This 53-nucleotide sequence from Saltera sarcocolla belongs to the Rfam family "Plastid-atpF group II-D1 intron". Gene Ontology term of the family: Group II intron splicing. About the family: Plastid atpF is a non-coding RNA (ncRNA) recognised in plastids. It has been reported in the intron group II-D1 region of ATP synthase (atpF) genes. NCBI's taxonomy places the organism under Eukaryota, Streptophytina, malvids, Penaeaceae, Saltera. Rfam's curators put it in the seed alignment.
RNA sequence: CUUUUUUUGUUCGAUAUAGAACACUUGUGUCGAUAAAAUGAUUUGAAACCUUU
Numbered sequence: 001c002u003u004u005u006u007u008u009g010u011u012c013g014a015u016a017u018a019g020a021a022c023a024c025u026u027g028u029g030u031c032g033a034u035a036a037a038a039u040g041a042u043u044u045g046a047a048a049c050c051u052u053u
Base pairs, nucleotide, nucleotide: 011033012032013031014030015029016028017027